[Rfam]
RNA sequence: UAAUAUUUUAGAUUGAAAUUUCGUAUAACCCCAAUGAUAUGGUUUGGGGGUCUCUACUAGGAACCAAUAAUUCCUAAUUACGAAGAAAAUAUAUAUUUAG
Numbered sequence: 001u002a003a004u005a006u007u008u009u010a011g012a013u014u015g016a017a018a019u020u021u022c023g024u025a026u027a028a029c030c031c032c033a034a035u036g037a038u039a040u041g042g043u044u045u046g047g048g049g050g051u052c053u054c055u056a057c058u059a060g061g062a063a064c065c066a067a068u069a070a071u072u073c074c075u076a077a078u079u080a081c082g083a084a085g086a087a088a089a090u091a092u093a094u095a096u097u098u099a100g
Stems, first nucleotide, its partner, number of pairs: 019085007029049006058076006